Betaproteobacteria toxic small RNA: a 66-nucleotide RNA from Lampropedia puyangensis. Taxonomically the source falls in Lampropedia (Bacteria, Pseudomonadota, Betaproteobacteria, Burkholderiales). From the family's description: Overexpression in amino aid rich medium attenuates growth, suggesting role in repressing amino acid intake and metabolism. For this family Rfam cites "Identification of small RNAs abundant in Burkholderia cenocepacia biofilms reveal putative regulators with a potential role in carbon and iron metabolism" (Sass et al., Sci Rep, 2017). It scores 54 bits against the family's covariance model.

RNA sequence: UGUCUCCUCCACCUUCUCAAAUGGUGGAUUCGCCCCGCAAUCAGCAAUGAUUACGGGGCUUUUUUC
Numbered sequence: 001u002g003u004c005u006c007c008u009c010c011a012c013c014u015u016c017u018c019a020a021a022u023g024g025u026g027g028a029u030u031c032g033c034c035c036c037g038c039a040a041u042c043a044g045c046a047a048u049g050a051u052u053a054c055g056g057g058g059c060u061u062u063u064u065u066c
Base pairs, nucleotide, nucleotide: 008028009027010026011025012024013023032059033058034057035056036055037054039052040051041050042049043048